[Rfam]
Nucleotides: 084
Stems, first nucleotide, its partner, number of pairs: 001084020022063016039046002
Number, partner (000 for none) and nucleotide at each position: 001084u002083a003082u004081u005080a006079g007078g008077u009076u010075g011074g012073u013072g014071c015070a016069a017068a018067g019066g020065u021000u022063a023062u024061u025060g026059c027058a028057g029056u030055u031054u032053u033052u034051g035050c036049u037048a038000c039046c040045g041000a042000g043000a044000g045040u046039g047000a048037u049036g050035g051034c052033a053032a054031a055030a056029a057028c058027u059026g060025c061024a062023a063022u064000u065020a066019c067018c068017u069016u070015u071014g072013c073012a074011c075010c076009a077008a078007c079006c080005u081004a082003a083002u084001a
About this RNA: A member of the RNA family "mir-548 microRNA precursor family" from Piliocolobus tephrosceles, 84 nucleotides long. The family has 11 seed sequences and 3,009 matches in Rfam 15.1. It scores 92 bits against the family's covariance model. Pairs were carried over by alignment from the consensus structure, which was predicted with WAR.